[Rfam]
RNA sequence: UUGCCGACGGCAGCGCCAUUUCCAGAGUUAUCAGCGAAUGGUAACGUCAUAGCUCUUUAAAUGGUACUGCCGUAGGCAC
Numbered sequence: 001u002u003g004c005c006g007a008c009g010g011c012a013g014c015g016c017c018a019u020u021u022c023c024a025g026a027g028u029u030a031u032c033a034g035c036g037a038a039u040g041g042u043a044a045c046g047u048c049a050u051a052g053c054u055c056u057u058u059a060a061a062u063g064g065u066a067c068u069g070c071c072g073u074a075g076g077c078a079c
Base pairs, nucleotide, nucleotide: 002078003077004076007073008072009071011069012068013067015065016064017063018062019061020060021059024056025055026054027053028052029051030050031049
The record is a 79-nucleotide RNA from Muraenolepis orangiensis, which matches "mir-458 microRNA precursor family" in Rfam. Taxonomically the source falls in Muraenolepis (Eukaryota, Chordata, Teleostomi, Actinopterygii). Rfam links the family to the GO terms miRNA-mediated post-transcriptional gene silencing and RISC complex.